[Rfam]
Nucleotides: 159
Base pairs, nucleotide, nucleotide: 001089002088003087004086006085010081011080012079017072018071019070020069022065023064024063025062026061027060028059138154139153140152142150
Number, partner (000 for none) and nucleotide at each position: 001089c002088u003087u004086c005000u006085c007000a008000c009000u010081a011080c012079a013000u014000c015000c016000u017072c018071g019070c020069g021000a022065c023064u024063a025062a026061u027060g028059a029000c030000a031000a032000u033000c034000c035000u036000u037000a038000u039000c040000u041000c042000u043000c044000a045000u046000g047000a048000g049000a050000u051000a052000a053000a054000g055000c056000c057000u058000c059028u060027c061026a062025u063024u064023a065022g066000c067000c068000g069020c070019g071018c072017g073000a074000a075000c076000c077000u078000c079012u080011g081010u082000a083000a084000c085006g086004g087003a088002a089001g090000a091000u092000c093000c094000u095000c096000a097000g098000u099000a100000a101000u102000a103000c104000a105000u106000u107000a108000a109000c110000c111000u112000g113000a114000u115000u116000u117000g118000c119000u120000u121000a122000u123000g124000c125000u126000u127000c128000c129000u130000a131000g132000a133000a134000g135000a136000a137000a138154g139153g140152g141000g142150c143000c144000a145000c146000a147000u148000u149000u150142g151000g152140c153139c154138c155000c156000u157000u158000u159000c
The family of this 159-nucleotide RNA from Serratia fonticola is "SraG RNA". Gene Ontology terms of the family: mRNA binding and sRNA-mediated gene silencing. Rfam's curators write: This RNA was discovered in E. coli during a large scale screen. Evidence was found for specific cleavage of this RNA. The family's RNA type in Rfam is small RNA. On this family, see Argaman et al., Curr Biol 2001: "Novel small RNA-encoding genes in the intergenic regions of Escherichia coli". Taxonomically the source falls in Serratia (Bacteria, Pseudomonadota, Enterobacterales, Yersiniaceae).